The family of this 152-nucleotide RNA sequence from Bifidobacterium aemilianum is "FMN riboswitch aptamer (RFN element)". About the family: The RFN element is a highly conserved domain that is found frequently in the 5'-untranslated regions of prokaryotic mRNAs that encode for flavin mononucleotide (FMN) biosynthesis and transport proteins. A search with the family's covariance model found it, with a score of 83 bits. Taxonomically the source falls in Bifidobacterium (Bacteria, Bacillati, Actinomycetota, Actinomycetes). The family's consensus secondary structure is taken from published work.
RNA sequence: GGCAAGUUUCAGGGAAGGUGCGAUUCCUUACUGGCGGUAUAGGUCAGGUCCACAUACAUAAGGACCCCAAACCCAAGCCCGCGACCCGCGCAAGCGGCUGAUCCGGUGAGAGACCGGGGCCAACGGUAUAGUCCGGAUGGAAGAAACGGAGC
Numbered sequence: 001g002g003c004a005a006g007u008u009u010c011a012g013g014g015a016a017g018g019u020g021c022g023a024u025u026c027c028u029u030a031c032u033g034g035c036g037g038u039a040u041a042g043g044u045c046a047g048g049u050c051c052a053c054a055u056a057c058a059u060a061a062g063g064a065c066c067c068c069a070a071a072c073c074c075a076a077g078c079c080c081g082c083g084a085c086c087c088g089c090g091c092a093a094g095c096g097g098c099u100g101a102u103c104c105g106g107u108g109a110g111a112g113a114c115c116g117g118g119g120c121c122a123a124c125g126g127u128a129u130a131g132u133c134c135g136g137a138u139g140g141a142a143g144a145a146a147c148g149g150a151g152c
Stems, first nucleotide, its partner, number of pairs: 006147005016028003030132002032122002034082004086097002102118005124135003